[Rfam]
Notes:
The record is a 160-nucleotide RNA sequence from Aspergillus sp. HF37, which matches "A. fumigatus sRNA Afu_254" in Rfam. The family has 6 seed sequences and 185 matches in Rfam 15.1. The match comes from Rfam's covariance-model search (92 bits). The source organism's lineage runs through Eukaryota, Fungi, Ascomycota, saccharomyceta and Aspergillus.
RNA sequence: UCGCAAGUCUACUGUCUUACCACUGCUACUACUACUCCAAACAAACCACUUGAACCAACUUAUCCCAAUCAACAUGUCUCCCUGCAACUGCAACUGCUGCGACGGCAACUGCAACGCCUGCUCCUGCAGCAACUGCUCGGUGAGUGCAUACUAUCUUUGU
Numbered sequence: 001u002c003g004c005a006a007g008u009c010u011a012c013u014g015u016c017u018u019a020c021c022a023c024u025g026c027u028a029c030u031a032c033u034a035c036u037c038c039a040a041a042c043a044a045a046c047c048a049c050u051u052g053a054a055c056c057a058a059c060u061u062a063u064c065c066c067a068a069u070c071a072a073c074a075u076g077u078c079u080c081c082c083u084g085c086a087a088c089u090g091c092a093a094c095u096g097c098u099g100c101g102a103c104g105g106c107a108a109c110u111g112c113a114a115c116g117c118c119u120g121c122u123c124c125u126g127c128a129g130c131a132a133c134u135g136c137u138c139g140g141u142g143a144g145u146g147c148a149u150a151c152u153a154u155c156u157u158u159g160u
Stems, first nucleotide, its partner, number of pairs: 083107003090100003111136003120127002